This 127-nucleotide RNA sequence from Suicoccus acidiformans belongs to the Rfam family "Ribosomal protein L10 leader". The source organism's lineage runs through Bacteria, Bacillati, Bacillota, Bacilli and Suicoccus. Rfam describes the family as follows. This family is a putative r-protein leader autoregulatory structure found in B. subtilis and other low-GC Gram-positive bacteria. It is located in the 5' untranslated regions of mRNAs encoding ribosomal proteins L10 and L12 (rplJ-rplL). A Rho-independent transcription terminator structure that is probably involved in regulation is included at the 3' end. By type it is a cis-regulatory leader. A search with the family's covariance model found it, with a score of 71 bits.
RNA sequence: AGUUGGCGUGUUAAACGACCGAAGACAGUAAGUGGCAUCAGCCUUAAUUUCUUACCGAGGAAGUUCCCGUUUAUUUGAGGAAGCUAUCUCUAUGUCUUGGGUGACAUAGGGUUUUUUUAUAUUAAUA
Dot-bracket structure: ...........................(((((.(((....))).......)))))................................(((((((((......)))))))))................
Numbered sequence: 001a002g003u004u005g006g007c008g009u010g011u012u013a014a015a016c017g018a019c020c021g022a023a024g025a026c027a028g029u030a031a032g033u034g035g036c037a038u039c040a041g042c043c044u045u046a047a048u049u050u051c052u053u054a055c056c057g058a059g060g061a062a063g064u065u066c067c068c069g070u071u072u073a074u075u076u077g078a079g080g081a082a083g084c085u086a087u088c089u090c091u092a093u094g095u096c097u098u099g100g101g102u103g104a105c106a107u108a109g110g111g112u113u114u115u116u117u118u119a120u121a122u123u124a125a126u127a
Stems, first nucleotide, its partner, number of pairs: 028055005034043003088111009